Notes
Shown here is a 155-nucleotide RNA from Pseudoselenomonas ruminantium, a member of the family "c-di-AMP riboswitch aptamer (ydaO/yuaA leader)". A search with the family's covariance model found it, with a score of 86 bits. Lineage of the source: Bacteria > Bacillati > Negativicutes > Selenomonadaceae > Pseudoselenomonas.
RNA sequence: CAUAGGAUUAAGCUGAAUCCAGCCCAGGAGCGGGGGAACCAAUUUUUCGGGGCGAACUUCAAGAUUACAUUAUUUGACAGUGUAAGGAUUGUAGCGGGUGGUCUUCUCUACCCGAGCCCGGCAGCUAACCUCGUAAGCGAACAGAGAGAGGAGUU
Numbered sequence: 001c002a003u004a005g006g007a008u009u010a011a012g013c014u015g016a017a018u019c020c021a022g023c024c025c026a027g028g029a030g031c032g033g034g035g036g037a038a039c040c041a042a043u044u045u046u047u048c049g050g051g052g053c054g055a056a057c058u059u060c061a062a063g064a065u066u067a068c069a070u071u072a073u074u075u076g077a078c079a080g081u082g083u084a085a086g087g088a089u090u091g092u093a094g095c096g097g098g099u100g101g102u103c104u105u106c107u108c109u110a111c112c113c114g115a116g117c118c119c120g121g122c123a124g125c126u127a128a129c130c131u132c133g134u135a136a137g138c139g140a141a142c143a144g145a146g147a148g149a150g151g152a153g154u155u
Base pairs, nucleotide, nucleotide: 012138013137014136018029019028020027030134031133032132033131034130035129040049050119051118052117058093060091061090096113097112098111099110